[Rfam]
RNA sequence: UGGGUCGGCUGGACGGUCGCGUCACGGGUUCGCCCGUGCCGAGGAACGUCCGGGCUCCACAGGGCAGGACGGUGGGUAACGCCCACCCGGAGCAAUCCGCGAGACAGUGCCACAGAGAGCAGACCGCCCCGUCCCCUCGGGGUGCGGGGUAAGGGUGAAAGGGUGGUGUAAGAGACCACCGGGGUCGUGGUGACACGACCCGCGAGGUAAACCUCGUCCGGAGCAAGGCCAGACAGGGGAUGACGACGCGGCUCGCCGAGUCCCCGGGUAGGCCGCUGGAGCGGCACGGCAACGUGUCGCCGAGAGAGAUGACCGUCCACGGGGUUUCGACCCCCGGACAGAACCCGGCGUACAGGCCGGCCCAUUCG
Numbered sequence: 001u002g003g004g005u006c007g008g009c010u011g012g013a014c015g016g017u018c019g020c021g022u023c024a025c026g027g028g029u030u031c032g033c034c035c036g037u038g039c040c041g042a043g044g045a046a047c048g049u050c051c052g053g054g055c056u057c058c059a060c061a062g063g064g065c066a067g068g069a070c071g072g073u074g075g076g077u078a079a080c081g082c083c084c085a086c087c088c089g090g091a092g093c094a095a096u097c098c099g100c101g102a103g104a105c106a107g108u109g110c111c112a113c114a115g116a117g118a119g120c121a122g123a124c125c126g127c128c129c130c131g132u133c134c135c136c137u138c139g140g141g142g143u144g145c146g147g148g149g150u151a152a153g154g155g156u157g158a159a160a161g162g163g164u165g166g167u168g169u170a171a172g173a174g175a176c177c178a179c180c181g182g183g184g185u186c187g188u189g190g191u192g193a194c195a196c197g198a199c200c201c202g203c204g205a206g207g208u209a210a211a212c213c214u215c216g217u218c219c220g221g222a223g224c225a226a227g228g229c230c231a232g233a234c235a236g237g238g239g240a241u242g243a244c245g246a247c248g249c250g251g252c253u254c255g256c257c258g259a260g261u262c263c264c265c266g267g268g269u270a271g272g273c274c275g276c277u278g279g280a281g282c283g284g285c286a287c288g289g290c291a292a293c294g295u296g297u298c299g300c301c302g303a304g305a306g307a308g309a310u311g312a313c314c315g316u317c318c319a320c321g322g323g324g325u326u327u328c329g330a331c332c333c334c335c336g337g338a339c340a341g342a343a344c345c346c347g348g349c350g351u352a353c354a355g356g357c358c359g360g361c362c363c364a365u366u367c368g
Base pairs, nucleotide, nucleotide: 001364002363003362004361005360006359007358008357009356010355011353012317013316014315015314016313017312018311020041021040023038024037025036026035027034028033046351047350048349050348051347052346053345054344055223056222057221058220062254063253064252065251067219068218069217070216071215072086073085074084075083076082087101088099089098090097091096102214103213107212108211109208110207111206124154125153126150127149128148129147130146131145132144134142162180163179164178165177166176167175181203182201183200184199185198186197187196188195189194227274228273229272230271236265237264238263239262240261241260248256249255281300282299283298284297285296286295287294288293